HIV-1 stem-loop 4 packaging signal: a 20-nucleotide RNA from Lentivirus simimdef. The base pairs follow the family's consensus structure, which is taken from published work. The source organism's lineage runs through Viruses, Riboviria, Retroviridae, Orthoretrovirinae and Lentivirus simimdef. The sequence is in the family's curated seed alignment. The literature on the family includes a 2008 paper in Proc Natl Acad Sci U S A by Yu et al., "MS3D structural elucidation of the HIV-1 packaging signal".
RNA sequence: UGGGUGCGAGAGCGUCAAUC
Numbered sequence: 001u002g003g004g005u006g007c008g009a010g011a012g013c014g015u016c017a018a019u020c
Base pairs, nucleotide, nucleotide: 003016004015005014006013007012